[Rfam]
RNA sequence: CCUGGGGCUACGCCCCAGGCUGGUAUAGGACGCGCCUUCGGCGCU
Number, nucleotide and partner (000 for none) at each position: 001c019002c018003u017004g016005g015006g014007g013008c012009u000010a000011c000012g008013c007014c006015c005016c004017a003018g002019g001020c000021u000022g000023g000024u000025a000026u000027a000028g000029g000030a000031c000032g044033c043034g042035c041036c040037u000038u000039c000040g036041g035042c034043g033044c032045u000